[Rfam]
RNA: UnaL2 LINE 3' element
Organism: Coregonus sp. 'balchen'
RNA sequence: CUGUAAGUCGCUCUGGAUAAGAGCGUCUGCUAAAUGACUAAAA
Numbered sequence: 001c002u003g004u005a006a007g008u009c010g011c012u013c014u015g016g017a018u019a020a021g022a023g024c025g026u027c028u029g030c031u032a033a034a035u036g037a038c039u040a041a042a043a
Stems, first nucleotide, its partner, number of pairs: 002032001003030003009025006